[Rfam]
RNA sequence: CUGCAGCUAAUUAAGCCGAUCAGGUUCCUUUCCUCAUGGGGGUCUGGUGUGCAAUGGCUGCAAACAGCAACCUCCUUGGUAGUGAAUACAGCCUGUUGCAUGUAUGGGCUGCCCUAAGGGACCUUGGAGAGUUUU
Dot-bracket structure: .((((.............((((..((((..........))))..)))).))))........................(((........((((((...........)))))).........)))............
A member of the RNA family "Small nucleolar RNA SNORA70" from Nannospalax galili, 135 nucleotides long. Pairs were carried over by alignment from the consensus structure, which was predicted with PFOLD. Its family is annotated with RNA processing and nucleolus in the Gene Ontology. On this family, see Charette and Gray, IUBMB Life 2000: "Pseudouridine in RNA: what, where, how, and why". Taxonomically the source falls in Nannospalax (Eukaryota, Chordata, Tetrapoda, Muroidea). From the family's description: snoRNA U70 seems to be exclusive to mammals and is a member of the H/ACA class of snoRNA which contain H (ANANNA) and ACA box motifs. H/ACA box snoRNAs are involved in the conversion of uridines to pseudouridines (5-ribosyluracil) a constituent of structural RNAs (transfer, ribosomal, small nuclear, and small nucleolar).